[Rfam]
RNA sequence: UGUACGUGUGUGUGUGUUCAAGUAGUGAACAAAGGCCGGUUAGACAGGUACAAAAGUACAUCAUUUCUGCCUGUAACCCAGAAUUCAUUACUCAGUAUGAGUUUUGAUACCUACCAGAAAACA
Numbered sequence: 001u002g003u004a005c006g007u008g009u010g011u012g013u014g015u016g017u018u019c020a021a022g023u024a025g026u027g028a029a030c031a032a033a034g035g036c037c038g039g040u041u042a043g044a045c046a047g048g049u050a051c052a053a054a055a056g057u058a059c060a061u062c063a064u065u066u067c068u069g070c071c072u073g074u075a076a077c078c079c080a081g082a083a084u085u086c087a088u089u090a091c092u093c094a095g096u097a098u099g100a101g102u103u104u105u106g107a108u109a110c111c112u113a114c115c116a117g118a119a120a121a122c123a
Stems, first nucleotide, its partner, number of pairs: 001052005007046003011042001014036001015031003061123001064120001066118004073114001079106010
Small nucleolar RNA SNORA40: a 123-nucleotide sequence from Rattus norvegicus.
Its family is annotated with RNA processing and nucleolus in the Gene Ontology.
It is annotated as an H/ACA-box small nucleolar RNA.
About the family: The snoRNA ACA 40 belongs to the H/ACA family of snoRNAs and guides the pseudouridylation of 28S rRNA subunit at position U4565.
The base pairs follow the family's consensus structure, which was predicted with RNAalifold.
It scores 52 bits against the family's covariance model.
For this family Rfam cites "Mapping to nucleotide resolution of pseudouridine residues in large subunit ribosomal RNAs from representative eukaryotes, prokaryotes, archaebacteria, mitochondria and chloroplasts" (Ofengand and Bakin, J Mol Biol, 1997).